[Rfam]
RNA: serC leader
RNA sequence: CGGCGGGAUACCCCUCCCCAACGAGGGGCAACCAUCUGGAAGGAUGGAUAGC
Numbered sequence: 001c002g003g004c005g006g007g008a009u010a011c012c013c014c015u016c017c018c019c020a021a022c023g024a025g026g027g028g029c030a031a032c033c034a035u036c037u038g039g040a041a042g043g044a045u046g047g048a049u050a051g052c
Stems, first nucleotide, its partner, number of pairs: 011028006032047006